[Rfam]
RNA sequence: GGAACGGGCCUUUCAGGCAUCCUCUCCCAAACUUUCAAAGGCCAGCCUUCGGGCUGGCCAUUUUUUUGUCUGCA
Numbered sequence: 001g002g003a004a005c006g007g008g009c010c011u012u013u014c015a016g017g018c019a020u021c022c023u024c025u026c027c028c029a030a031a032c033u034u035u036c037a038a039a040g041g042c043c044a045g046c047c048u049u050c051g052g053g054c055u056g057g058c059c060a061u062u063u064u065u066u067u068g069u070c071u072g073c074a
Stems, first nucleotide, its partner, number of pairs: 008018004040059008

A member of the RNA family "Makes More Granules Regulator RNA (mmgR)" from Novosphingobium sp. AAP1, 74 nucleotides long. It is annotated as a small RNA. Pairs were carried over by alignment from the consensus structure. SuhB later renamed mmgR (makes more granules regulator) was a putative non-coding RNA found multiple times in the Agrobacterium tumefaciens genome and related alpha-proteobacteria. Other non-coding RNAs uncovered in the same analysis include: speF, ybhL, metA, and serC.Several studies inSinorhizobium meliloti showed that suhB element is indeed a non-coding RNA:firstly it was detected on Northern blot and called Sm8RNA, secondly in an RNAseq study referred to as SmelC689.The mutant phenotype's (strain lacking the small RNA) cytoplasm contains higher content of polyhydroxybutyrate (PBH)storage granules than wild type strain. The sRNA is required to limit the PBH intracellular accumulation when the nitrogen-fixing Sinorhizobium meliloti is under condition of surplus carbon in relation to nitrogen. It has been renamed to mmgR. Further study confirmed that mmgR fine-tunes the regulation of PBH storage.Northern blot confirmed the expression of the sRNA in other rhizobia species. MmgR homologues were found in most alpha-proteobacteria. Clan: suhB sRNA clan. A search with the family's covariance model found it, with a score of 43 bits. A reference for the family is Corbino et al. (2005), "Evidence for a second class of S-adenosylmethionine riboswitches and other regulatory RNA motifs in alpha-proteobacteria", Genome Biol. The family has 87 seed sequences and 1,791 matches in Rfam 15.1.